[Rfam]
RNA sequence: AGGUCACAAUCAACAUUCAUUGUUGUCGGUGGGUUGUGGGGACCAAGGCCAGACCCACCGGGAGAUGAAUGUCACUGUGGCUGG
Numbered sequence: 001a002g003g004u005c006a007c008a009a010u011c012a013a014c015a016u017u018c019a020u021u022g023u024u025g026u027c028g029g030u031g032g033g034u035u036g037u038g039g040g041g042a043c044c045a046a047g048g049c050c051a052g053a054c055c056c057a058c059c060g061g062g063a064g065a066u067g068a069a070u071g072u073c074a075c076u077g078u079g080g081c082u083g084g
Stems, first nucleotide, its partner, number of pairs: 003082001004080005014071008026061006033054003
RNA: mir-181 microRNA precursor family